[Rfam]
RNA: PyrR binding site
RNA sequence: GCUACCUUUAAUCCAGUCCAGAGAGGCUGACAAGGAGUCGUUUAGUUGUUCGUGCAUAGUCCAAUGGGAUUACUGCGCGGACCAAUUAAUUACGCCUUCGUCAGUGGACGAAGGCUUUUUGUUU
Numbered sequence: 001g002c003u004a005c006c007u008u009u010a011a012u013c014c015a016g017u018c019c020a021g022a023g024a025g026g027c028u029g030a031c032a033a034g035g036a037g038u039c040g041u042u043u044a045g046u047u048g049u050u051c052g053u054g055c056a057u058a059g060u061c062c063a064a065u066g067g068g069a070u071u072a073c074u075g076c077g078c079g080g081a082c083c084a085a086u087u088a089a090u091u092a093c094g095c096c097u098u099c100g101u102c103a104g105u106g107g108a109c110g111a112a113g114g115c116u117u118u119u120u121g122u123u124u
Base pairs, nucleotide, nucleotide: 003037005035006034007033008032014029015028016027017026018025044087045086046085047084048083049081050080051079052078053077054076055075056074092117094115095114096113097112098111099110100109101108102107